[Rfam]
RNA sequence: GGAGGAUUCGCCUAGCGGCCUAUGGCGCACGCUUGGAAAGCGUGUUGGGUUCACGCCCUCGGGGGUUCGAAUCCCCCAUCCUCCG
Numbered sequence: 001g002g003a004g005g006a007u008u009c010g011c012c013u014a015g016c017g018g019c020c021u022a023u024g025g026c027g028c029a030c031g032c033u034u035g036g037a038a039a040g041c042g043u044g045u046u047g048g049g050u051u052c053a054c055g056c057c058c059u060c061g062g063g064g065g066u067u068c069g070a071a072u073c074c075c076c077c078a079u080c081c082u083c084c085g
Base pairs, nucleotide, nucleotide: 001084002083003082004081005080006079007078010026011025012024028044029043030042031041032040061077062076063075064074065073
The record is an 85-nucleotide RNA sequence from Xylanimonas cellulosilytica, which matches "tRNA" in Rfam. Taxonomically the source falls in Xylanimonas cellulosilytica (Bacteria, Bacillati, Actinomycetota, Xylanimonas).